[Rfam]
Rfam assigns this 90-nucleotide sequence from Actinoplanes cyaneus to the family "ZMP/ZTP riboswitch aptamer (pfl RNA motif)". A search with the family's covariance model found it, with a score of 48 bits. Rfam links the family to the GO terms one-carbon metabolic process and regulation of purine nucleotide biosynthetic process.
RNA sequence: GCGGUAGGCCGUGACUGGCGCGUUCGGAUGGUUGACCAUCGGGGAGCGGCCUCGUCGAGAUGACGACUGCCGUGCGCCUGGGCCUCUUCG
Number, nucleotide and partner (000 for none) at each position: 001g000002c000003g055004g000005u000006a052007g051008g050009c049010c048011g047012u046013g000014a000015c043016u042017g078018g077019c076020g075021c074022g000023u000024u000025c000026g000027g000028a039029u038030g037031g036032u000033u000034g000035a000036c031037c030038a029039u028040c000041g000042g016043g015044g000045a000046g012047c011048g010049g009050c008051c007052u006053c000054g000055u003056c000057g000058a000059g000060a000061u000062g000063a000064c000065g000066a000067c000068u000069g083070c082071c081072g000073u000074g021075c020076g019077c018078c017079u000080g000081g071082g070083c069084c000085u000086c000087u000088u000089c000090g000
The family's consensus secondary structure is taken from published work.